[Rfam]
RNA sequence: CUUCCGGAGGGAAGCGAAGACCCCGUGGAGCUUUACUGCAAUCUGCUGUUGAAGCUUGGUAACUAGCGUAUAGUGUAGGCGGGAGCCGUCGAAGCCAGGUCGCCAGGCCUGGCGGAGGCGCCCAUGUAACACCGCCCGUUAGUUGUCGGGUUUCUAACUGCUCCGGCAGAACCGCAGCAGACGGGCAGUUUCGCUGGGGCGGCAGCCUCUCGAAAAGAUAUCGAGAGGGUCCAAAGGUCGGCUUAGGCGGGUCAGAAAUCCGCCGCAAAGGACAAGGCCAAAAGCCGGCUUAACUGUGUUUUCACUUCUGGAAAACGCAGGGGCGAAAGCCGGGCCUAGCGAACCCCGAGAUCCCUCUUGAUGGGGGUUCGGGAUGACAGAAAAGCUACCCCGGGGAUAACAGAGUUGUCGCGGGCAAGAGCCCGUAUCGACCCCGCGGCUUGCUACCUCGAUGUCGGUUCUUCGCAUCCUGGCCGUGCAGCAGCGGCCAAGGGUAAGGUUGUUCGCCUGUUAAAGCGGAUCGUGAGCUGGGUUUAGACCGUCGUGAGACAGGUCAGACGCUAUCUUCCGGAAGUGCU
Numbered sequence: 001c002u003u004c005c006g007g008a009g010g011g012a013a014g015c016g017a018a019g020a021c022c023c024c025g026u027g028g029a030g031c032u033u034u035a036c037u038g039c040a041a042u043c044u045g046c047u048g049u050u051g052a053a054g055c056u057u058g059g060u061a062a063c064u065a066g067c068g069u070a071u072a073g074u075g076u077a078g079g080c081g082g083g084a085g086c087c088g089u090c091g092a093a094g095c096c097a098g099g100u101c102g103c104c105a106g107g108c109c110u111g112g113c114g115g116a117g118g119c120g121c122c123c124a125u126g127u128a129a130c131a132c133c134g135c136c137c138g139u140u141a142g143u144u145g146u147c148g149g150g151u152u153u154c155u156a157a158c159u160g161c162u163c164c165g166g167c168a169g170a171a172c173c174g175c176a177g178c179a180g181a182c183g184g185g186c187a188g189u190u191u192c193g194c195u196g197g198g199g200c201g202g203c204a205g206c207c208u209c210u211c212g213a214a215a216a217g218a219u220a221u222c223g224a225g226a227g228g229g230u231c232c233a234a235a236g237g238u239c240g241g242c243u244u245a246g247g248c249g250g251g252u253c254a255g256a257a258a259u260c261c262g263c264c265g266c267a268a269a270g271g272a273c274a275a276g277g278c279c280a281a282a283a284g285c286c287g288g289c290u291u292a293a294c295u296g297u298g299u300u301u302u303c304a305c306u307u308c309u310g311g312a313a314a315a316c317g318c319a320g321g322g323g324c325g326a327a328a329g330c331c332g333g334g335c336c337u338a339g340c341g342a343a344c345c346c347c348g349a350g351a352u353c354c355c356u357c358u359u360g361a362u363g364g365g366g367g368u369u370c371g372g373g374a375u376g377a378c379a380g381a382a383a384a385g386c387u388a389c390c391c392c393g394g395g396g397a398u399a400a401c402a403g404a405g406u407u408g409u410c411g412c413g414g415g416c417a418a419g420a421g422c423c424c425g426u427a428u429c430g431a432c433c434c435c436g437c438g439g440c441u442u443g444c445u446a447c448c449u450c451g452a453u454g455u456c457g458g459u460u461c462u463u464c465g466c467a468u469c470c471u472g473g474c475c476g477u478g479c480a481g482c483a484g485c486g487g488c489c490a491a492g493g494g495u496a497a498g499g500u501u502g503u504u505c506g507c508c509u510g511u512u513a514a515a516g517c518g519g520a521u522c523g524u525g526a527g528c529u530g531g532g533u534u535u536a537g538a539c540c541g542u543c544g545u546g547a548g549a550c551a552g553g554u555c556a557g558a559c560g561c562u563a564u565c566u567u568c569c570g571g572a573a574g575u576g577c578u
Base pairs, nucleotide, nucleotide: 001574002573003572004571005570006569007568008567010566011565012564014561015560022395023394024393025392027391028390029387030386031385032384033383035189036188037187038186042181043180044179045178046177047176048175051154052153053152054151055150056149057148058147059146060145061144062143063142064141065140066139067138068137078136079135080134081133082132085119086118087117097110098109099108100107101106158169159168160167161166192205193203194202195201206228207227208226209225210224211223231334232333237289238288239287240286241285242284243269244268246264247263248262249261250260251259270279271278294320295319296318297317298316299315300314301313302312322331324329345373346372347371348370349369351368353367354366355365356364404445405444406443408442409439410438411437412436413435414434415433419429420428456531457529458528459527460526461523462520463519464518465517466516469494470493473488474487475486476485477484497509498508499507500506537555538554539553540552541550542549543548